[Rfam]
RNA sequence: AAAAAGUUAAACUCUGGGUUUUGAUGUCUAACUUUGACUAUCCGUUUUAUAUAAAAUUUUUUUUAUAAUUCAUAUUUUUAUUGUUGUUAAAUGAUAAAACAUGAUUAAUAUUUUAUACGUGACUUGUCUUUUUAAUUUUUUUAUAAUUUUUGUAAAUAAAAUGGACGGUCAAAUAUUGGGUACGGAAAUCAGCG
Numbered sequence: 001a002a003a004a005a006g007u008u009a010a011a012c013u014c015u016g017g018g019u020u021u022u023g024a025u026g027u028c029u030a031a032c033u034u035u036g037a038c039u040a041u042c043c044g045u046u047u048u049a050u051a052u053a054a055a056a057u058u059u060u061u062u063u064u065a066u067a068a069u070u071c072a073u074a075u076u077u078u079u080a081u082u083g084u085u086g087u088u089a090a091a092u093g094a095u096a097a098a099a100c101a102u103g104a105u106u107a108a109u110a111u112u113u114u115a116u117a118c119g120u121g122a123c124u125u126g127u128c129u130u131u132u133u134a135a136u137u138u139u140u141u142u143a144u145a146a147u148u149u150u151u152g153u154a155a156a157u158a159a160a161a162u163g164g165a166c167g168g169u170c171a172a173a174u175a176u177u178g179g180g181u182a183c184g185g186a187a188a189u190c191a192g193c194g
Stems, first nucleotide, its partner, number of pairs: 027180005033173007041165010
Dot-bracket structure: ..........................(((((.(((((((.((((((((((.........................................................................................................)))))))))).)))))))..)))))..............
RNA: MIR812 microRNA precursor family
Organism: Oryza barthii